Background: Bacillaceae-1 RNA: a 68-nucleotide RNA from Lysinibacillus composti. A search with the family's covariance model found it, with a score of 38 bits. Lineage of the source: Bacteria > Bacillati > Caryophanales > Bacillaceae > Lysinibacillus. The family's consensus secondary structure is taken from published work.
[Rfam]
RNA sequence: GUAAUAGGAAGUUUGCCUUAAAACGUCGCAUCCGUGCGAUAACGGCUAACUGACCAACAUCCUGCUCC
Numbered sequence: 001g002u003a004a005u006a007g008g009a010a011g012u013u014u015g016c017c018u019u020a021a022a023a024c025g026u027c028g029c030a031u032c033c034g035u036g037c038g039a040u041a042a043c044g045g046c047u048a049a050c051u052g053a054c055c056a057a058c059a060u061c062c063u064g065c066u067c068c
Base pairs, nucleotide, nucleotide: 011050012049013048015046016045017044025040026039027038028037029036056066058064